[Rfam]
RNA sequence: CACAGGGCUAACACCCUGUGCUGAUAUAUAUCGCCCUUUCAGGGCU
Numbered sequence: 001c002a003c004a005g006g007g008c009u010a011a012c013a014c015c016c017u018g019u020g021c022u023g024a025u026a027u028a029u030a031u032c033g034c035c036c037u038u039u040c041a042g043g044g045c046u
Stems, first nucleotide, its partner, number of pairs: 001020007033045005